The family of this 84-nucleotide RNA sequence from Oculatella sp. FACHB-28 is "Glutamine riboswitch aptamer (glnA leader)". Its family is annotated with glutamine binding in the Gene Ontology. Pairs were carried over by alignment from the consensus structure, which is taken from published work.
Nucleotides: 084
Stems, first nucleotide, its partner, number of pairs: 003080005009049004052081001058071003
Number, partner (000 for none) and nucleotide at each position: 001000u002000u003080c004079g005078u006077u007076c008000a009049u010048c011047u012046c013000c014000c015000a016000a017000g018000u019000u020000c021000c022000c023000c024000g025000c026000c027000u028000u029000c030000a031000g032000g033000u034000a035000g036000g037000g038000u039000u040000c041000u042000a043000g044000u045000a046012g047011a048010g049009a050000c051000g052081g053000a054000a055000g056000u057000a058071g059070g060069g061000a062000g063000u064000u065000u066000u067000g068000u069060c070059c071058c072000g073000a074000a075000g076007g077006a078005a079004c080003g081052c082000g083000c084000c